[Rfam]
RNA sequence: AUUGUAAGCAUUGCACCCAGGGUCUGGACCACCAGACAUUGUACCUGGAGCUUUUCUUCAUUAUAAAAUGUUUUAU
Numbered sequence: 001a002u003u004g005u006a007a008g009c010a011u012u013g014c015a016c017c018c019a020g021g022g023u024c025u026g027g028a029c030c031a032c033c034a035g036a037c038a039u040u041g042u043a044c045c046u047g048g049a050g051c052u053u054u055u056c057u058u059c060a061u062u063a064u065a066a067a068a069u070g071u072u073u074u075a076u
Stems, first nucleotide, its partner, number of pairs: 006053004017048004022037005
A member of the RNA family "U1A polyadenylation inhibition element (PIE)" from Conger conger, 76 nucleotides long. A reference for the family is Clerte and Hall (2004), "Global and Local Dynamics of the U1A Polyadenylation Inhibition Element (PIE) RNA and PIE RNA-U1A Complexes", Biochemistry. Taxonomically the source falls in Conger (Eukaryota, Chordata, Vertebrata, Gnathostomata). Its family is annotated with regulation of mRNA polyadenylation in the Gene Ontology.